[Rfam]
This 48-nucleotide sequence belongs to the Rfam family "chrB-b RNA".
By type it is a cis-regulatory element.
The sequence is in the family's curated seed alignment.
RNA sequence: UCGGGACGAAGCAGGCUCCCGUCAGACGGUCCACCGUCCAAGCUCUGC
Dot-bracket structure: .(((((....[[[[[.)))))...(((((....))))).....]]]]]